[Rfam]
RNA: RAGATH-18 RNA
RNA sequence: ACUGUGGACUGCACAACAAAUUGUUAGUAGUAUAUGAAUUUAUUAAUUACAAAAGCAUGCAGGAUGAAGCAGUAA
Numbered sequence: 001a002c003u004g005u006g007g008a009c010u011g012c013a014c015a016a017c018a019a020a021u022u023g024u025u026a027g028u029a030g031u032a033u034a035u036g037a038a039u040u041u042a043u044u045a046a047u048u049a050c051a052a053a054a055g056c057a058u059g060c061a062g063g064a065u066g067a068a069g070c071a072g073u074a075a
Stems, first nucleotide, its partner, number of pairs: 001073005009062005022057003030050003035045002